[Rfam]
RNA sequence: CGACUCCGUGCGGGAGAGUCCCCGGCAGCACUCCGCCGGGGCGCCGAAGGAGCAAGUCCUCCCUUGAAUCUCUCAGGCCCCGAUACCGCACGGUCUAG
Numbered sequence: 001c002g003a004c005u006c007c008g009u010g011c012g013g014g015a016g017a018g019u020c021c022c023c024g025g026c027a028g029c030a031c032u033c034c035g036c037c038g039g040g041g042c043g044c045c046g047a048a049g050g051a052g053c054a055a056g057u058c059c060u061c062c063c064u065u066g067a068a069u070c071u072c073u074c075a076g077g078c079c080c081c082g083a084u085a086c087c088g089c090a091c092g093g094u095c096u097a098g
Stems, first nucleotide, its partner, number of pairs: 006093008020041007043078003046074002050072003056065001